[Rfam]
RNA sequence: GUCAGGGUGAGUGGGGCUGGUGCUCGGCCUGGACUUCAACUCUAGGGGCCUGGGGACAUAUAGGAGUUCGAUUCUCCCUCCUUGAC
Numbered sequence: 001g002u003c004a005g006g007g008u009g010a011g012u013g014g015g016g017c018u019g020g021u022g023c024u025c026g027g028c029c030u031g032g033a034c035u036u037c038a039a040c041u042c043u044a045g046g047g048g049c050c051u052g053g054g055g056a057c058a059u060a061u062a063g064g065a066g067u068u069c070g071a072u073u074c075u076c077c078c079u080c081c082u083u084g085a086c
Stems, first nucleotide, its partner, number of pairs: 001086007009078001012027001014025004028046006048061001051058002063077004
RNA: Selenocysteine transfer RNA
Organism: Polarella glacialis